RNA sequence: CACUCACUGAACUGUAAGUCGCUCUGGAUAAGAGCGUCUGCUAAAUGACUAAAA
Numbered sequence: 001c002a003c004u005c006a007c008u009g010a011a012c013u014g015u016a017a018g019u020c021g022c023u024c025u026g027g028a029u030a031a032g033a034g035c036g037u038c039u040g041c042u043a044a045a046u047g048a049c050u051a052a053a054a
Stems, first nucleotide, its partner, number of pairs: 013043001014041003020036006